[Rfam]
RNA sequence: AGUGAUAAAGGAAUUCAAAGUCAAAAGAUGCAGUGCUUGCACUGUGCAGCUUUUGACCUUGAAGACCGAACAUACAUGAGCAAGUAGAGCGGUAGCUCGGAUUGUGAAUGUAUGUAGCAUGACGAGAGCAAAGCGAAGUUAUGCGAUAUCACG
Numbered sequence: 001a002g003u004g005a006u007a008a009a010g011g012a013a014u015u016c017a018a019a020g021u022c023a024a025a026a027g028a029u030g031c032a033g034u035g036c037u038u039g040c041a042c043u044g045u046g047c048a049g050c051u052u053u054u055g056a057c058c059u060u061g062a063a064g065a066c067c068g069a070a071c072a073u074a075c076a077u078g079a080g081c082a083a084g085u086a087g088a089g090c091g092g093u094a095g096c097u098c099g100g101a102u103u104g105u106g107a108a109u110g111u112a113u114g115u116a117g118c119a120u121g122a123c124g125a126g127a128g129c130a131a132a133g134c135g136a137a138g139u140u141a142u143g144c145g146a147u148a149u150c151a152c153g
Stems, first nucleotide, its partner, number of pairs: 002152006011066001014063001017060002020057008029048002031044005070115008080105004087098004117144007128134002